Shown here is a 63-nucleotide RNA sequence, a member of the family "Selenocysteine insertion sequence 1". The family has 61 seed sequences and 3,793 matches in Rfam 15.1. The incorporation of selenocysteine into a protein sequence is directed by an in-frame UGA codon (usually a stop codon) within the coding region of the mRNA. Selenoprotein mRNAs contain a conserved secondary structure in the 3' UTR that is required for the distinction of UGA stop from UGA selenocysteine. The sequence is in the family's curated seed alignment. Rfam classes the family as a cis-regulatory element. The base pairs follow the family's consensus structure, which is taken from published work.

RNA sequence: GUGUGUUUAUGAAGAGCACUAACAAAAGAGUAAUUGACUCAGUUGGUGUUCAGAUGCUCUCAC
Numbered sequence: 001g002u003g004u005g006u007u008u009a010u011g012a013a014g015a016g017c018a019c020u021a022a023c024a025a026a027a028g029a030g031u032a033a034u035u036g037a038c039u040c041a042g043u044u045g046g047u048g049u050u051c052a053g054a055u056g057c058u059c060u061c062a063c
Stems, first nucleotide, its partner, number of pairs: 001063003005059001014051010029039003